[Rfam]
RNA sequence: ACUGGCAAGGAUGACAUACACUUGCCCUCACUUAGACCUUAGCUCACUGAUGAGAGCAUCUAAUUGUUCUGAGCCAGC
Numbered sequence: 001a002c003u004g005g006c007a008a009g010g011a012u013g014a015c016a017u018a019c020a021c022u023u024g025c026c027c028u029c030a031c032u033u034a035g036a037c038c039u040u041a042g043c044u045c046a047c048u049g050a051u052g053a054g055a056g057c058a059u060c061u062a063a064u065u066g067u068u069c070u071g072a073g074c075c076a077g078c
Stems, first nucleotide, its partner, number of pairs: 002077005
A member of the RNA family "Small nucleolar RNA SNORD103/SNORD85" from Loxodonta africana, 78 nucleotides long. The family has 41 seed sequences and 1,349 matches in Rfam 15.1. A reference for the family is Vitali et al. (2003), "Identification of 13 novel human modification guide RNAs", Nucleic Acids Res. The sequence is in the family's curated seed alignment. Pairs were carried over by alignment from the consensus structure. Rfam classes the family as a C/D-box small nucleolar RNA.